[Rfam]
Shown here is a 174-nucleotide RNA from Saccharobesus litoralis, a member of the family "Lysine riboswitch aptamer".
The family has 47 seed sequences and 3,224 matches in Rfam 15.1.
Rfam describes the family as follows. Riboswitches are metabolite binding domains within certain messenger RNAs that serve as precision sensors for their corresponding targets. Allosteric rearrangement of mRNA structure is mediated by ligand binding, and this results in modulation of gene expression. This family includes riboswitches that sense lysine in a number of genes involved in lysine metabolism, including lysC.
Its family is annotated with lysine biosynthetic process in the Gene Ontology.
RNA sequence: AUUACCGGAAGAGGUGCAGCAUCUAGGUACUGUAUAAGAGAAGGCAAAGCUUUUUUGACGAUACAGAAGGGAGAUGACUGCCGAGAAGUGACUGUACUUUGCAGUCAGUCACUUCGGUUGUUAUGGCUGAAUCCUGACAACUGUCACCGCGUUGGGUGGAGCGCUUUCGGGAUU
Numbered sequence: 001a002u003u004a005c006c007g008g009a010a011g012a013g014g015u016g017c018a019g020c021a022u023c024u025a026g027g028u029a030c031u032g033u034a035u036a037a038g039a040g041a042a043g044g045c046a047a048a049g050c051u052u053u054u055u056u057g058a059c060g061a062u063a064c065a066g067a068a069g070g071g072a073g074a075u076g077a078c079u080g081c082c083g084a085g086a087a088g089u090g091a092c093u094g095u096a097c098u099u100u101g102c103a104g105u106c107a108g109u110c111a112c113u114u115c116g117g118u119u120g121u122u123a124u125g126g127c128u129g130a131a132u133c134c135u136g137a138c139a140a141c142u143g144u145c146a147c148c149g150c151g152u153u154g155g156g157u158g159g160a161g162c163g164c165u166u167u168c169g170g171g172a173u174u
Stems, first nucleotide, its partner, number of pairs: 006169006016081004021075004030066006085115010116142008125133001144159005